[Rfam]
RNA sequence: CGCCUGCGGGGGUAACUUCGUCGGUGAUUAAGCAGAAGUCAGCAGACGGCAUAGUAGCCCAAUGCCCAUCGUAAUGGAUGGGACAUGGUGCCAAAAGUAGGCGCCUUAGGCGAAGGCC
Numbered sequence: 001c002g003c004c005u006g007c008g009g010g011g012g013u014a015a016c017u018u019c020g021u022c023g024g025u026g027a028u029u030a031a032g033c034a035g036a037a038g039u040c041a042g043c044a045g046a047c048g049g050c051a052u053a054g055u056a057g058c059c060c061a062a063u064g065c066c067c068a069u070c071g072u073a074a075u076g077g078a079u080g081g082g083a084c085a086u087g088g089u090g091c092c093a094a095a096a097g098u099a100g101g102c103g104c105c106u107u108a109g110g111c112g113a114a115g116g117c118c
Stems, first nucleotide, its partner, number of pairs: 001026002004023001006021006038047003048118003057111003061107002